The family of this 71-nucleotide RNA is "tRNA". Rfam's curators write: Transfer RNA (tRNA) molecules are approximately 80 nucleotides in length. Rfam classes the family as a transfer RNA.
[Rfam]
RNA sequence: GCGGAUAUAGUUGAAUGGUAUAAUUUCUCUUUGCCAAGGAGAAGACGCGGGUUCAAUUCCCGCUAUCCGCC
Numbered sequence: 001g002c003g004g005a006u007a008u009a010g011u012u013g014a015a016u017g018g019u020a021u022a023a024u025u026u027c028u029c030u031u032u033g034c035c036a037a038g039g040a041g042a043a044g045a046c047g048c049g050g051g052u053u054c055a056a057u058u059c060c061c062g063c064u065a066u067c068c069g070c071c
Base pairs, nucleotide, nucleotide: 001070002069003068004067005066006065007064010024011023012022013021026042027041028040029039030038047063048062049061050060051059